[Rfam]
RNA: DUF805b RNA
RNA sequence: AUCGCAUAUGCCGAAAAGCGUAUAAUAGAGUAGGCU
Numbered sequence: 001a002u003c004g005c006a007u008a009u010g011c012c013g014a015a016a017a018g019c020g021u022a023u024a025a026u027a028g029a030g031u032a033g034g035c036u
Base pairs, nucleotide, nucleotide: 003020004019005018010035011034012033